[Rfam]
RNA: ffh sRNA
Organism: Roseibium aggregatum
RNA sequence: GAUCCCGGAGGUUACCAUCCGACAGCGCGUUGCGCCCUCGGGUGUCAAACUG
Numbered sequence: 001g002a003u004c005c006c007g008g009a010g011g012u013u014a015c016c017a018u019c020c021g022a023c024a025g026c027g028c029g030u031u032g033c034g035c036c037c038u039c040g041g042g043u044g045u046c047a048a049a050c051u052g
Base pairs, nucleotide, nucleotide: 016044017043018042019041020040021039022038025035026034027033028032